[Rfam]
RNA sequence: UAGUUAUUAAGAAAGGUGGAGGGAAUAGACCCUGUGAAACCUUAGCAACCCUUUAUUUAUAAAGAAGGUGCUAAAUUCUAACCCGAUUGUUCGGGAAAAGAUAACUC
Number, nucleotide and partner (000 for none) at each position: 001u000002a106003g105004u104005u103006a102007u101008u100009a000010a000011g000012a000013a043014a042015g041016g040017u039018g000019g000020a000021g032022g031023g030024a000025a000026u080027a079028g078029a077030c023031c022032c021033u000034g000035u000036g000037a000038a000039a017040c016041c015042u014043u013044a072045g071046c070047a069048a000049c068050c067051c064052u063053u062054u061055a000056u000057u000058u000059a000060u000061a054062a053063a052064g051065a000066a000067g050068g049069u047070g046071c045072u044073a000074a000075a000076u099077u029078c028079u027080a026081a000082c095083c094084c093085g092086a091087u000088u000089g000090u000091u086092c085093g084094g083095g082096a000097a000098a000099a076100g008101a007102u006103a005104a004105c003106u002107c000

A member of the RNA family "SAM riboswitch aptamer (S box leader)" from Aquimarina aggregata, 107 nucleotides long. Taxonomically the source falls in Aquimarina (Bacteria, Pseudomonadati, Bacteroidota, Flavobacteriales).